[Rfam]
RNA sequence: AAAUUACUAAGGUGUGCGCAUUGCUCUAAACAAAGUGUUGCCGAACAAUUAAUACUACUUUGGGAUGUCCGUUAGCUAAUUCCAUAACAUGCCUUAUCCUUUGGUAGUUAGCGAAUUAGUCAGAACGUCCCACCUGCCUUAAAGCGGGUCAAUACUGAAGGGCGAUUAACGGCACCACUAGUUUUUCC
Numbered sequence: 001a002a003a004u005u006a007c008u009a010a011g012g013u014g015u016g017c018g019c020a021u022u023g024c025u026c027u028a029a030a031c032a033a034a035g036u037g038u039u040g041c042c043g044a045a046c047a048a049u050u051a052a053u054a055c056u057a058c059u060u061u062g063g064g065a066u067g068u069c070c071g072u073u074a075g076c077u078a079a080u081u082c083c084a085u086a087a088c089a090u091g092c093c094u095u096a097u098c099c100u101u102u103g104g105u106a107g108u109u110a111g112c113g114a115a116u117u118a119g120u121c122a123g124a125a126c127g128u129c130c131c132a133c134c135u136g137c138c139u140u141a142a143a144g145c146g147g148g149u150c151a152a153u154a155c156u157g158a159a160g161g162g163c164g165a166u167u168a169a170c171g172g173c174a175c176c177a178c179u180a181g182u183u184u185u186u187c188c
Stems, first nucleotide, its partner, number of pairs: 002186002006182004012175004017171002035155006041148002062131003066127003070123001075120007087108002092104002

Overview: Shown here is a 188-nucleotide sequence from Lactiplantibacillus plantarum, a member of the family "6S / SsrS RNA". The base pairs follow the family's consensus structure, which is taken from published work. The family's RNA type in Rfam is non-coding RNA gene. About the family: E. coli 6S RNA was the first non coding RNA to be sequenced, but its function was unknown until recently. NCBI's taxonomy places the organism under Bacteria, Bacilli, Lactobacillales, Lactiplantibacillus, Lactiplantibacillus plantarum.